[Rfam]
RNA: Glycine riboswitch aptamer
Organism: Aquibacillus koreensis
RNA sequence: GGAGCAACUUCUGGAGAGUCCGUUAUAACGGCGCCGAAGGAUUCACAAUCUCAGGCAACAGGACAGAAGAUGAAUC
Numbered sequence: 001g002g003a004g005c006a007a008c009u010u011c012u013g014g015a016g017a018g019u020c021c022g023u024u025a026u027a028a029c030g031g032c033g034c035c036g037a038a039g040g041a042u043u044c045a046c047a048a049u050c051u052c053a054g055g056c057a058a059c060a061g062g063a064c065a066g067a068a069g070a071u072g073a074a075u076c
Stems, first nucleotide, its partner, number of pairs: 006071001008069006020031004033056003036052002040050003